[Rfam]
RNA sequence: CUGCAGUGAUGACAGUCUUAGGACACCUUUGGAUUUAACUGUGAAAGGAAAGAGUAAUUUCUGAGCAGC
Number, nucleotide and partner (000 for none) at each position: 001c068002u067003g066004c065005a000006g000007u000008g000009a000010u000011g000012a000013c000014a000015g000016u000017c000018u000019u000020a000021g000022g000023a000024c000025a000026c000027c000028u000029u000030u000031g000032g000033a000034u000035u000036u000037a000038a000039c000040u000041g000042u000043g000044a000045a000046a000047g000048g000049a000050a000051a000052g000053a000054g000055u000056a000057a000058u000059u000060u000061c000062u000063g000064a000065g004066c003067a002068g001069c000